[Rfam]
RNA sequence: GUGGGUCCGGGCGAUGGAGUCCGCCCGCCCCAACCGCCAUCCUCGGCUGAUGACUCCUUUUCAUCG
Numbered sequence: 001g002u003g004g005g006u007c008c009g010g011g012c013g014a015u016g017g018a019g020u021c022c023g024c025c026c027g028c029c030c031c032a033a034c035c036g037c038c039a040u041c042c043u044c045g046g047c048u049g050a051u052g053a054c055u056c057c058u059u060u061u062c063a064u065c066g
Stems, first nucleotide, its partner, number of pairs: 010025004016057006036047003
The record is a 66-nucleotide sequence, which matches "Fluoride riboswitch aptamer (crcB RNA motif)" in Rfam.
The match comes from Rfam's covariance-model search (45 bits).